[Rfam]
RNA: mir-BART2 microRNA precursor family
Organism: Lymphocryptovirus humangamma4
RNA sequence: ACUAUUUUCUGCAUUCGCCCUUGCGUGUCCAUUGUUGCAAGGAGCGAUUUGGAGAAAAUAAA
Dot-bracket structure: ..((((((((.((.(((((((((((..........))))))).))))..)).))))))))..